[Rfam]
RNA sequence: UCUGCACCCAAACCCAAAGGCCCCUCCCCCCCCGUGGGGGGGUCUUGUCUGGCGUGCGAACAGGAAGCUGAACCCUGUCGCCGUCCCGUCGCUGCCGUGCGGCGGGCCGUGAAGCAGGGGGCGACACGC
Numbered sequence: 001u002c003u004g005c006a007c008c009c010a011a012a013c014c015c016a017a018a019g020g021c022c023c024c025u026c027c028c029c030c031c032c033c034g035u036g037g038g039g040g041g042g043u044c045u046u047g048u049c050u051g052g053c054g055u056g057c058g059a060a061c062a063g064g065a066a067g068c069u070g071a072a073c074c075c076u077g078u079c080g081c082c083g084u085c086c087c088g089u090c091g092c093u094g095c096c097g098u099g100c101g102g103c104g105g106g107c108c109g110u111g112a113a114g115c116a117g118g119g120g121g122c123g124a125c126a127c128g129c
Stems, first nucleotide, its partner, number of pairs: 003058005009052001019044009070122001073121004082109002085106008
Shown here is a 129-nucleotide RNA from Liparis tanakae, a member of the family "Small nucleolar RNA SNORA68".
The family's RNA type in Rfam is H/ACA-box small nucleolar RNA.
Rfam's curators write: U68 is a member of the H/ACA class of small nucleolar RNAs (snoRNAs) which act as guides in the the modification of uridines to pseudouridines.
The family has 26 seed sequences and 1,079 matches in Rfam 15.1.